[Rfam]
RNA sequence: CACUGUUCUCAGGGCGGGGUGAAAGUCCCCACCGGCGGUAAUGGCAGCCUGUUGUUGCAGAUCUGCCCAAGCCCGCGAGCGCCCGAUAUCGCUGCAGCACCACGCAUAUCGGGGUCAGCAGAUUCGGUGAGAUGCCGAAGCCGACGGUGAUAGUCCGGAUGGAAGAGAACGGCA
Numbered sequence: 001c002a003c004u005g006u007u008c009u010c011a012g013g014g015c016g017g018g019g020u021g022a023a024a025g026u027c028c029c030c031a032c033c034g035g036c037g038g039u040a041a042u043g044g045c046a047g048c049c050u051g052u053u054g055u056u057g058c059a060g061a062u063c064u065g066c067c068c069a070a071g072c073c074c075g076c077g078a079g080c081g082c083c084c085g086a087u088a089u090c091g092c093u094g095c096a097g098c099a100c101c102a103c104g105c106a107u108a109u110c111g112g113g114g115u116c117a118g119c120a121g122a123u124u125c126g127g128u129g130a131g132a133u134g135c136c137g138a139a140g141c142c143g144a145c146g147g148u149g150a151u152a153g154u155c156c157g158g159a160u161g162g163a164a165g166a167g168a169a170c171g172g173c174a
Base pairs, nucleotide, nucleotide: 003172004171005170006169007168008167009166010165017029018028019027031154032153033143034142035076036075037074038073071141072140079119080118123139124138125137126136127135145157146156147155
Dot-bracket structure: ..((((((((......(((.......))).[[((((((................................[[))))..((.....................................))...(((((.......)))))]])).(((.....]]))).......))))))))..
Record summary:
Shown here is a 174-nucleotide sequence from Halomonas halmophila, a member of the family "FMN riboswitch aptamer (RFN element)". The family's consensus secondary structure is taken from published work. Lineage of the source: Bacteria > Pseudomonadati > Pseudomonadota > Oceanospirillales > Halomonas. It scores 109 bits against the family's covariance model. Its family is annotated with FMN binding in the Gene Ontology.